[Rfam]
Nucleotides: 073
Stems, first nucleotide, its partner, number of pairs: 001072007010025004027043005049065005
Number, partner (000 for none) and nucleotide at each position: 001072g002071c003070g004069g005068a006067a007066a008000u009000a010025g011024c012023u013022c014000a015000g016000u017000u018000g019000g020000u021000a022013g023012a024011g025010c026000a027043u028042a029041a030040c031039c032000u033000u034000g035000c036000c037000a038000a039031g040030g041029u042028u043027g044000g045000g046000g047000u048000c049065g050064g051063g052062a053061g054000u055000u056000c057000g058000a059000g060000u061053c062052u063051c064050c065049u066007u067006u068005u069004c070003c071002g072001c073000u